mir-160 microRNA precursor family: an 86-nucleotide RNA from Momordica charantia. The family has 7 seed sequences and 1,502 matches in Rfam 15.1. The literature on the family includes a 2002 paper in Cell by Rhoades et al., "Prediction of plant microRNA targets". The organism belongs to Momordica, within Eukaryota.
RNA sequence: AUGUGCCUGGCUCCCUGUAUGCCAUUUGUGGAGCUUAUCGACUCUCCGAUGGCCUCUGCACAUGGCGUAUGAGGAGCCAUGCAUAU
Numbered sequence: 001a002u003g004u005g006c007c008u009g010g011c012u013c014c015c016u017g018u019a020u021g022c023c024a025u026u027u028g029u030g031g032a033g034c035u036u037a038u039c040g041a042c043u044c045u046c047c048g049a050u051g052g053c054c055u056c057u058g059c060a061c062a063u064g065g066c067g068u069a070u071g072a073g074g075a076g077c078c079a080u081g082c083a084u085a086u
Base pairs, nucleotide, nucleotide: 001086002085003084004083005082006081008079009078010077011076012075013074014073016071017070018069019068020067021066022065023064024063027060028059029058